RNA sequence: CCCGGUCCUCGGUAGUGGCUUUCAGAUCUCGACAGGCUUGAUCAACGCCUGGAUCUGCGGGCCUCGAUCGAAGAUCGGC
Numbered sequence: 001c002c003c004g005g006u007c008c009u010c011g012g013u014a015g016u017g018g019c020u021u022u023c024a025g026a027u028c029u030c031g032a033c034a035g036g037c038u039u040g041a042u043c044a045a046c047g048c049c050u051g052g053a054u055c056u057g058c059g060g061g062c063c064u065c066g067a068u069c070g071a072a073g074a075u076c077g078g079c
Base pairs, nucleotide, nucleotide: 002078003077004076005075006074007073009071010070011069012068013067017063018062019061020060021059023057024056025055026054027053028052029051
A member of the RNA family "Actino-pnp RNA" from Nocardioides jejuensis, 79 nucleotides long. Rfam classes the family as a cis-regulatory element. The source organism's lineage runs through Bacteria, Actinomycetes, Propionibacteriales, Nocardioidaceae and Nocardioides. It scores 60 bits against the family's covariance model.